Source information: The family of this 79-nucleotide RNA sequence is "Clostridiales-2 RNA". The sequence is in the family's curated seed alignment.

RNA sequence: UAAAAGAAAGAUGUGCAGAGGGGGCACCCCUCGCCGUCGAAGGAAGGUGCUCAGGCUGCUUGCAGCCGCCGAAGGGAAC
Numbered sequence: 001u002a003a004a005a006g007a008a009a010g011a012u013g014u015g016c017a018g019a020g021g022g023g024g025c026a027c028c029c030c031u032c033g034c035c036g037u038c039g040a041a042g043g044a045a046g047g048u049g050c051u052c053a054g055g056c057u058g059c060u061u062g063c064a065g066c067c068g069c070c071g072a073a074g075g076g077a078a079c
Stems, first nucleotide, its partner, number of pairs: 015034002018032006054067005